Annotation
Shown here is a 182-nucleotide RNA sequence from Erinaceus europaeus, a member of the family "Small nucleolar RNA SNORA23". Rfam 15.1 lists 1,092 matches to the family in 632 species. The family's RNA type in Rfam is H/ACA-box small nucleolar RNA. A search with the family's covariance model found it, with a score of 158 bits. A reference for the family is Huttenhofer et al. (2001), "RNomics: an experimental approach that identifies 201 candidates for novel, small, non-messenger RNAs in mouse", EMBO J.
RNA sequence: GCUGUAAUGUGCGCACAGUUUUCACCUGUGUCUGGUAGCAGUCUAUCUCUGUUUUAAAUUCAGAUCUUGCUAUCCACACAAGCAAUAUGCAGCCAGAGAGUAAGUUGGGAUCAUAGUACUGGUUUAGUGUUGUCUUUUCAGACAUGACUACCACUGGCCAGCCUCCAAAUUCCCACACACAA
Numbered sequence: 001g002c003u004g005u006a007a008u009g010u011g012c013g014c015a016c017a018g019u020u021u022u023c024a025c026c027u028g029u030g031u032c033u034g035g036u037a038g039c040a041g042u043c044u045a046u047c048u049c050u051g052u053u054u055u056a057a058a059u060u061c062a063g064a065u066c067u068u069g070c071u072a073u074c075c076a077c078a079c080a081a082g083c084a085a086u087a088u089g090c091a092g093c094c095a096g097a098g099a100g101u102a103a104g105u106u107g108g109g110a111u112c113a114u115a116g117u118a119c120u121g122g123u124u125u126a127g128u129g130u131u132g133u134c135u136u137u138u139c140a141g142a143c144a145u146g147a148c149u150a151c152c153a154c155u156g157g158c159c160a161g162c163c164u165c166c167a168a169a170u171u172c173c174c175a176c177a178c179a180c181a182a
Stems, first nucleotide, its partner, number of pairs: 013090003029080003033076003036072005041065004048058001050056001106175005119161006126155004131146003135142002